[Rfam]
RNA sequence: AGUAUAGGAACGAAUGCUAAAACCGUCACAUCCCGUGACAACGCAUUUGUGACCAGUGUCGUGCCGG
Number, nucleotide and partner (000 for none) at each position: 001a000002g000003u000004a000005u000006a000007g000008g000009a000010a000011c049012g048013a047014a046015u045016g044017c043018u000019a000020a000021a000022a000023c000024c000025g039026u038027c037028a036029c035030a000031u000032c000033c000034c000035g029036u028037g027038a026039c025040a000041a000042c000043g017044c016045a015046u014047u013048u012049g011050u000051g000052a000053c067054c066055a000056g064057u063058g000059u000060c000061g000062u000063g057064c056065c000066g054067g053

The record is a 67-nucleotide RNA sequence from Lysinibacillus odysseyi, which matches "Bacillaceae-1 RNA" in Rfam. The match comes from Rfam's covariance-model search (56 bits). Pairs were carried over by alignment from the consensus structure, which is taken from published work.